Shown here is a 228-nucleotide part of an RNA from Chromobacterium violaceum, a member of the family "Bacterial large subunit ribosomal RNA".

RNA sequence: GACUUACGUUCAGUAGCAAGCUUAACCGAAUAGGGGAGGCGUAGGGAAACCGAGUCCGAAUAGGGCGUCUUAGUUGCUGGGCGUAGACCCGAAACCGAGUGAUCUAUCCAUGGCCAGGAUGAAGGUGCGGUAACACGCACUGGAGGUCCGAACCCACUAGUGUUGCAAAACUAGGGGAUGAGCUGUGGAUAGGGGUGAAAGGCUAAACAAACUCGGAGAUAGCUGGUU
Numbered sequence: 001g002a003c004u005u006a007c008g009u010u011c012a013g014u015a016g017c018a019a020g021c022u023u024a025a026c027c028g029a030a031u032a033g034g035g036g037a038g039g040c041g042u043a044g045g046g047a048a049a050c051c052g053a054g055u056c057c058g059a060a061u062a063g064g065g066c067g068u069c070u071u072a073g074u075u076g077c078u079g080g081g082c083g084u085a086g087a088c089c090c091g092a093a094a095c096c097g098a099g100u101g102a103u104c105u106a107u108c109c110a111u112g113g114c115c116a117g118g119a120u121g122a123a124g125g126u127g128c129g130g131u132a133a134c135a136c137g138c139a140c141u142g143g144a145g146g147u148c149c150g151a152a153c154c155c156a157c158u159a160g161u162g163u164u165g166c167a168a169a170a171c172u173a174g175g176g177g178a179u180g181a182g183c184u185g186u187g188g189a190u191a192g193g194g195g196u197g198a199a200a201g202g203c204u205a206a207a208c209a210a211a212c213u214c215g216g217a218g219a220u221a222g223c224u225g226g227u228u
Base pairs, nucleotide, nucleotide: 005085006084007083008082009081010080011079012078013077014076015075016074017073020040021039022038023037026034027033044051045050054066055065056064057063088226089225091223095216096215097214098213099212100211104192105191106190107189108188109187110186111185112184113183114182115180117149118148119147120146124141125140126139127138128137129136153177154176155175157174158173159172160171161170194204195203196202

Pairs were carried over by alignment from the consensus structure, which is taken from published work. Taxonomically the source falls in Chromobacterium violaceum (Bacteria, Neisseriales, Chromobacteriaceae, Chromobacterium).